[Rfam]
RNA sequence: UGACCCCGCGCGUGAGAGUCCUCACGUCGUGAGGCGCCGAAGGGGCAACCUCCCCGCCAAGCUCUCAGGCGCCAGGAACGUGUGGGUGAG
Numbered sequence: 001u002g003a004c005c006c007c008g009c010g011c012g013u014g015a016g017a018g019u020c021c022u023c024a025c026g027u028c029g030u031g032a033g034g035c036g037c038c039g040a041a042g043g044g045g046c047a048a049c050c051u052c053c054c055c056g057c058c059a060a061g062c063u064c065u066c067a068g069g070c071g072c073c074a075g076g077a078a079c080g081u082g083u084g085g086g087u088g089a090g
Stems, first nucleotide, its partner, number of pairs: 006085008020034004036070003039066002043064003050056001

Background: Glycine riboswitch aptamer: a 90-nucleotide RNA sequence from Ornithinimicrobium ciconiae. The base pairs follow the family's consensus structure. A search with the family's covariance model found it, with a score of 62 bits.